[Rfam]
RNA sequence: CGGUAAUGUCUACUAUACCGAUAUCAUUGGAGGCACUCGGCCAUGCUGUGGGUUGGAAUAGACCUUAGAUGCGCGUCAUCGAGGGUGUGGUGUGAGGAUGGGUUAGAUGCCCA
Numbered sequence: 001c002g003g004u005a006a007u008g009u010c011u012a013c014u015a016u017a018c019c020g021a022u023a024u025c026a027u028u029g030g031a032g033g034c035a036c037u038c039g040g041c042c043a044u045g046c047u048g049u050g051g052g053u054u055g056g057a058a059u060a061g062a063c064c065u066u067a068g069a070u071g072c073g074c075g076u077c078a079u080c081g082a083g084g085g086u087g088u089g090g091u092g093u094g095a096g097g098a099u100g101g102g103u104u105a106g107a108u109g110c111c112c113a
Stems, first nucleotide, its partner, number of pairs: 001020004007035005013029001036096004040091008050065005068080004099113005